[Rfam]
RNA sequence: GUUUCGCGGCCUCUUCGGCUCAGGUUGCCAAUUCUCCGGCUGCAGCUCUGCUUUGCGCUGCCAGUGAUGCGCUGGUAUCAGAUGCGGCGGCGUGGGUGGAUGCCUCCGAUGCUGAUGACUAGGCGGCUGCCGCCGUUCUGGCUGUGUCAGCCGACGCCGCGCUGGCUGAUGCCUCCCCGGCUUUUGUGGUCGCCGUACCUGCGCUGCUCUCCGCAGAUGCUGCGGAUGAAGCUGCCGACCAAAAUUCCCCUUGAAAACCAGCCUGUCAGGGCUGGUUUUUUU
Numbered sequence: 001g002u003u004u005c006g007c008g009g010c011c012u013c014u015u016c017g018g019c020u021c022a023g024g025u026u027g028c029c030a031a032u033u034c035u036c037c038g039g040c041u042g043c044a045g046c047u048c049u050g051c052u053u054u055g056c057g058c059u060g061c062c063a064g065u066g067a068u069g070c071g072c073u074g075g076u077a078u079c080a081g082a083u084g085c086g087g088c089g090g091c092g093u094g095g096g097u098g099g100a101u102g103c104c105u106c107c108g109a110u111g112c113u114g115a116u117g118a119c120u121a122g123g124c125g126g127c128u129g130c131c132g133c134c135g136u137u138c139u140g141g142c143u144g145u146g147u148c149a150g151c152c153g154a155c156g157c158c159g160c161g162c163u164g165g166c167u168g169a170u171g172c173c174u175c176c177c178c179g180g181c182u183u184u185u186g187u188g189g190u191c192g193c194c195g196u197a198c199c200u201g202c203g204c205u206g207c208u209c210u211c212c213g214c215a216g217a218u219g220c221u222g223c224g225g226a227u228g229a230a231g232c233u234g235c236c237g238a239c240c241a242a243a244a245u246u247c248c249c250c251u252u253g254a255a256a257a258c259c260a261g262c263c264u265g266u267c268a269g270g271g272c273u274g275g276u277u278u279u280u281u282u
Stems, first nucleotide, its partner, number of pairs: 008272001010270001012268001017263004023259004027235002032230003037225001039223002042220002060076007077116005085108003089104005117214001121210002125208003129204001131203003137197001139195001141193002144190002147154002159187002165181004171175001240253003
The record is a 282-nucleotide RNA sequence from Salmonella enterica, which matches "isrG Hfq binding RNA" in Rfam. Pairs were carried over by alignment from the consensus structure, which was predicted with RNAalifold. A reference for the family is Padalon-Brauch et al. (2008), "Small RNAs encoded within genetic islands of Salmonella typhimurium show host-induced expression and role in virulence", Nucleic Acids Res. The organism belongs to Salmonella enterica subsp. enterica serovar Typhimurium, within Bacteria.